[Rfam]
RNA sequence: AGGUCGGUUCCCAUUUUAGAAUUCCUACGCUUUACCUGUGUUUUAACCAGGCAAAGCGUCUGAAUUCUGAAUAUGGGCGUUGA
Numbered sequence: 001a002g003g004u005c006g007g008u009u010c011c012c013a014u015u016u017u018a019g020a021a022u023u024c025c026u027a028c029g030c031u032u033u034a035c036c037u038g039u040g041u042u043u044u045a046a047c048c049a050g051g052c053a054a055a056g057c058g059u060c061u062g063a064a065u066u067c068u069g070a071a072u073a074u075g076g077g078c079g080u081u082g083a
Base pairs, nucleotide, nucleotide: 010077011076012075013074014073015071016070017069018068019067020066022064023063024062027059028058029057030056031055032054033053035051036050
RNA: mir-927 microRNA precursor family